[Rfam]
Rfam assigns this 209-nucleotide RNA from Cucumis sativus to the family "Plant small nucleolar RNA U3". Rfam describes the family as follows. Small nucleolar RNAs (snoRNAs) are involved in the processing and modification of rRNA in the nucleolus. There are two main classes of snoRNAs: the box C/D class, and the box H/ACA class. U3 snoRNA is a member of the box C/D class. Indeed, the box C/D element is a subset of the six short sequence elements found in all U3 snoRNAs, namely boxes A, A', B, C, C', and D. The U3 snoRNA secondary structure is characterised by a small 5' domain (with boxes A and A'), and a larger 3' domain (with boxes B, C, C', and D), the two domains being linked by a single-stranded hinge. A reference for the family is Zwieb (1997), "The uRNA database", Nucleic Acids Res. It scores 157 bits against the family's covariance model. The base pairs follow the family's consensus structure, which is taken from published work. The source organism's lineage runs through Eukaryota, Euphyllophyta, Pentapetalae, Benincaseae and Cucumis. The family is grouped with related families in Rfam's "U3 clan".

RNA sequence: CCGACCUUACUUGAACAGGAUCUGUUCUAUAGGUUGUACCUCUGUGUCCUUGAGUUCUAAGGAGACAAGAACCAAAGUCUGGUGGAUGAUUUCUGACUUGUGACUAGAGCGUGAUUAACGGUACAUGGACCCAUGGUCCAACGGCUGUAUAGGAUCGUUCUCGGUAGCAUUACUACUUCCGGGAUGGUUGCAAGUCAGUCUGACAGACC
Numbered sequence: 001c002c003g004a005c006c007u008u009a010c011u012u013g014a015a016c017a018g019g020a021u022c023u024g025u026u027c028u029a030u031a032g033g034u035u036g037u038a039c040c041u042c043u044g045u046g047u048c049c050u051u052g053a054g055u056u057c058u059a060a061g062g063a064g065a066c067a068a069g070a071a072c073c074a075a076a077g078u079c080u081g082g083u084g085g086a087u088g089a090u091u092u093c094u095g096a097c098u099u100g101u102g103a104c105u106a107g108a109g110c111g112u113g114a115u116u117a118a119c120g121g122u123a124c125a126u127g128g129a130c131c132c133a134u135g136g137u138c139c140a141a142c143g144g145c146u147g148u149a150u151a152g153g154a155u156c157g158u159u160c161u162c163g164g165u166a167g168c169a170u171u172a173c174u175a176c177u178u179c180c181g182g183g184a185u186g187g188u189u190g191c192a193a194g195u196c197a198g199u200c201u202g203a204c205a206g207a208c209c
Base pairs, nucleotide, nucleotide: 002036003034005033006032007031013027014026015025016024017023018022043067044066045065047063048062049061050060051059052058077208078207079206080205081204095196096195097194098193099192100191101190102189103188104187105186106185108159109158110157111156118148119147120146121145122144126140127139128138129137130136131135161182162181163180164179166177167176